[Rfam]
RNA sequence: AGGAGCAGGCAAGGGUCUACUUUCGAACCGAGUCAGGACAGAGAUGUAGCAGCUCUAAGAUUGCUUGACCUUGUGCUUGUGUACAUA
Numbered sequence: 001a002g003g004a005g006c007a008g009g010c011a012a013g014g015g016u017c018u019a020c021u022u023u024c025g026a027a028c029c030g031a032g033u034c035a036g037g038a039c040a041g042a043g044a045u046g047u048a049g050c051a052g053c054u055c056u057a058a059g060a061u062u063g064c065u066u067g068a069c070c071u072u073g074u075g076c077u078u079g080u081g082u083a084c085a086u087a
Base pairs, nucleotide, nucleotide: 001086003084005080006079007078008077009076010073012072013071014070015069016068017067020063023060024059030055031054032053033052038047039046040045